[Rfam]
RNA sequence: UCACUUCCCAUUAAGGUGAAAGCGCUUAUAUGGAAGAUGUCGGUUUCGGCCGACUAUGGCGAUAAAGUGCGCUGUGCAAUAGGCACAAGGGACCCGGGGGCAGUACCCGGCGGCUCCACCAUAACCCCCUGAUUACAGGGGUUUUUGACGGGGCCGAACCAGGAUCGACCUGUGUUGAAAGACAGUGUUUUUGCCCGGGCUGAGUAACCCGUAAAACUGUUCAAAACACACAAGUGCCAAUGAUAAUGAAGCACUCGCUGUUGCAGCGUAAUUUUACGGCCUAACGGCCUGAAUUUACUAAGCUAAAGCGCGGUUGGACCCACCGGGCAACAGAAGCGGAUUCC
Number, nucleotide and partner (000 for none) at each position: 001u000002c000003a000004c000005u000006u000007c000008c000009c000010a000011u000012u000013a000014a000015g000016g000017u000018g000019a000020a000021a000022g000023c000024g000025c000026u000027u000028a000029u000030a000031u000032g000033g000034a000035a000036g000037a000038u000039g054040u053041c052042g051043g050044u000045u000046u000047c000048g000049g000050c043051c042052g041053a040054c039055u000056a000057u000058g195059g194060c193061g192062a191063u000064a000065a000066a000067g000068u000069g188070c187071g186072c185073u184074g183075u182076g000077c000078a000079a000080u000081a000082g000083g000084c174085a173086c172087a000088a171089g170090g169091g000092a000093c000094c110095c109096g108097g107098g106099g000100g000101c000102a000103g000104u000105a000106c098107c097108c096109g095110g094111c156112g155113g154114c153115u152116c151117c150118a000119c000120c000121a000122u000123a000124a000125c000126c000127c000128c000129c000130u000131g000132a000133u000134u000135a000136c000137a000138g000139g000140g000141g000142u000143u000144u000145u000146u000147g000148a000149c000150g117151g116152g115153g114154c113155c112156g111157a000158a000159c000160c000161a000162g000163g000164a000165u000166c000167g000168a000169c090170c089171u088172g086173u085174g084175u000176u000177g000178a000179a000180a000181g000182a075183c074184a073185g072186u071187g070188u069189u000190u000191u062192u061193g060194c059195c058196c211197g210198g209199g208200c000201u223202g222203a221204g000205u000206a000207a218208c199209c198210c197211g196212u000213a000214a000215a000216a000217c000218u207219g000220u000221u203222c202223a201224a000225a000226a000227c000228a000229c000230a000231c000232a000233a000234g000235u000236g000237c000238c000239a000240a000241u000242g000243a000244u000245a000246a000247u000248g000249a000250a000251g000252c000253a000254c000255u000256c000257g000258c000259u000260g000261u000262u000263g000264c000265a000266g000267c000268g000269u000270a000271a000272u000273u000274u000275u000276a000277c000278g000279g000280c000281c000282u000283a000284a000285c000286g000287g000288c000289c000290u000291g000292a000293a000294u000295u000296u000297a000298c000299u000300a000301a000302g000303c000304u000305a000306a000307a000308g000309c000310g000311c325312g324313g323314u322315u000316g342317g341318a000319c339320c338321c000322a314323c313324c312325g311326g000327g000328c000329a000330a000331c000332a000333g000334a000335a000336g000337c000338g320339g319340a000341u317342u316343c000344c000
The family of this 344-nucleotide sequence from Altererythrobacter ishigakiensis is "Alphaproteobacteria transfer-messenger RNA".
It is annotated as a non-coding RNA gene.
For this family Rfam cites "Phylogenetic analysis of tmRNA secondary structure" (Williams and Bartel, RNA, 1996).
The source organism's lineage runs through Bacteria, Pseudomonadati, Pseudomonadota, Alphaproteobacteria and Altererythrobacter.
The match comes from Rfam's covariance-model search (238 bits).
The family's consensus secondary structure is taken from published work.